[Rfam]
The family of this 66-nucleotide sequence from Coptis chinensis is "MIR164 microRNA precursor family". A reference for the family is Reinhart et al. (2002), "MicroRNAs in plants", Genes Dev. Rfam 15.1 lists 201 matches to the family in 125 species. The family's consensus secondary structure was predicted with RNAalifold.
RNA sequence: UGGAGAAGGGGAGCACGUGCAAAUGUACCAAUUGGCAUGCCUUUGCACGUGCCCUGCUUCUCCAAC
Number, nucleotide and partner (000 for none) at each position: 001u064002g063003g062004a061005g060006a059007a058008g057009g000010g055011g054012a000013g052014c051015a050016c049017g048018u047019g046020c045021a044022a043023a042024u000025g000026u000027a000028c000029c000030a000031a000032u000033u000034g000035g000036c000037a000038u000039g000040c000041c000042u023043u022044u021045g020046c019047a018048c017049g016050u015051g014052c013053c000054c011055u010056g000057c008058u007059u006060c005061u004062c003063c002064a001065a000066c000